A member of the RNA family "MIR168 microRNA precursor family" from Centaurea solstitialis, 146 nucleotides long.

RNA sequence: GUCACGGUGGUUUUCUGAUUCGCUUGGUACAGGUCGGGAACGGUUUUUCGCCUCCGAUUCCAGAAGAAGAUGAAAGAGAAUCGAAUCGGUUAUUCGGUGAGUAUCGGUCCCGCCUUGUAUCAACUGAAUCAGAAACCGCAGUGAAU
Numbered sequence: 001g002u003c004a005c006g007g008u009g010g011u012u013u014u015c016u017g018a019u020u021c022g023c024u025u026g027g028u029a030c031a032g033g034u035c036g037g038g039a040a041c042g043g044u045u046u047u048u049c050g051c052c053u054c055c056g057a058u059u060c061c062a063g064a065a066g067a068a069g070a071u072g073a074a075a076g077a078g079a080a081u082c083g084a085a086u087c088g089g090u091u092a093u094u095c096g097g098u099g100a101g102u103a104u105c106g107g108u109c110c111c112g113c114c115u116u117g118u119a120u121c122a123a124c125u126g127a128a129u130c131a132g133a134a135a136c137c138g139c140a141g142u143g144a145a146u
Stems, first nucleotide, its partner, number of pairs: 014133002018129004024123010035112005041106004
A search with the family's covariance model found it, with a score of 90 bits. Rfam links the family to the GO terms miRNA-mediated post-transcriptional gene silencing and RISC complex. The literature on the family includes a 2009 paper in New Phytol by Jagadeeswaran et al., "Cloning and characterization of small RNAs from Medicago truncatula reveals four novel legume-specific microRNA families".